Shown here is a 165-nucleotide sequence from Eubacterium uniforme, a member of the family "Clostridiales-1 RNA".
The family's consensus secondary structure is taken from published work.
RNA sequence: AGUGAUUAGUAUUUUCAAAGUCACAAGCUCUCUUGCUUGCAAGAAAGAGAUUGGGACCUUGAAAAUUAAACAUAAAUGAGGAAGUAGCGAUGCGAAGCAUCAGCGGAAUCCGAAUUUAUGUAGGAUUGUGUGAGUUGCGAAGCAACGUAACAAUCCGUAAUCACU
Numbered sequence: 001a002g003u004g005a006u007u008a009g010u011a012u013u014u015u016c017a018a019a020g021u022c023a024c025a026a027g028c029u030c031u032c033u034u035g036c037u038u039g040c041a042a043g044a045a046a047g048a049g050a051u052u053g054g055g056a057c058c059u060u061g062a063a064a065a066u067u068a069a070a071c072a073u074a075a076a077u078g079a080g081g082a083a084g085u086a087g088c089g090a091u092g093c094g095a096a097g098c099a100u101c102a103g104c105g106g107a108a109u110c111c112g113a114a115u116u117u118a119u120g121u122a123g124g125a126u127u128g129u130g131u132g133a134g135u136u137g138c139g140a141a142g143c144a145a146c147g148u149a150a151c152a153a154u155c156c157g158u159a160a161u162c163a164c165u
Stems, first nucleotide, its partner, number of pairs: 001165007011066004017060002020057003024053003028049004032043004070121008080111003087104002089101005123156007134146004